[Rfam]
RNA: Group II catalytic intron D1-D4-3
Organism: Paenibacillaceae bacterium GAS479
RNA sequence: UCCAUCGCGAGGUGGAAUCUGAAGGAAGCCGGCGGCAAAUUUCCGGCCUGAGGAACACGAACUUCAUAUAAGGCUAGCGUACGCUGGAUGAGACUGCUAAACAAGUCAAAGCCCAUACUGCCGAAGGCGUACGAGAGUAAAUGGAGCAGGUAGAUAGAGAGGAAGAUAGCGUU
Numbered sequence: 001u002c003c004a005u006c007g008c009g010a011g012g013u014g015g016a017a018u019c020u021g022a023a024g025g026a027a028g029c030c031g032g033c034g035g036c037a038a039a040u041u042u043c044c045g046g047c048c049u050g051a052g053g054a055a056c057a058c059g060a061a062c063u064u065c066a067u068a069u070a071a072g073g074c075u076a077g078c079g080u081a082c083g084c085u086g087g088a089u090g091a092g093a094c095u096g097c098u099a100a101a102c103a104a105g106u107c108a109a110a111g112c113c114c115a116u117a118c119u120g121c122c123g124a125a126g127g128c129g130u131a132c133g134a135g136a137g138u139a140a141a142u143g144g145a146g147c148a149g150g151u152a153g154a155u156a157g158a159g160a161g162g163a164a165g166a167u168a169g170c171g172u173u
Stems, first nucleotide, its partner, number of pairs: 001016006028173001030171002036165001040160004045155001046151005062146006073138003079132006086114002089111001092107004